[Rfam]
RNA sequence: CUUGCACCCAAACCCAAAGGUCAUAUCAUUUCCAUGGUAUGAUUUUGUCUGGUGUGCAGACAGAAAACUGAUCCUUGUCGCCUUUCUCUGAUGCUGCUGUGCCUUUGAAAGUGAAUUCAAGGUUCAACAAAU
Numbered sequence: 001c002u003u004g005c006a007c008c009c010a011a012a013c014c015c016a017a018a019g020g021u022c023a024u025a026u027c028a029u030u031u032c033c034a035u036g037g038u039a040u041g042a043u044u045u046u047g048u049c050u051g052g053u054g055u056g057c058a059g060a061c062a063g064a065a066a067a068c069u070g071a072u073c074c075u076u077g078u079c080g081c082c083u084u085u086c087u088c089u090g091a092u093g094c095u096g097c098u099g100u101g102c103c104u105u106u107g108a109a110a111g112u113g114a115a116u117u118c119a120a121g122g123u124u125c126a127a128c129a130a131a132u
Base pairs, nucleotide, nucleotide: 002059003058004057005056006055007054009052019044020043021042022041023040024039025038026037027036028035070125071124073122074121075120076119082111083110084109085108086107090105091104093102094101
RNA: Small nucleolar RNA SNORA68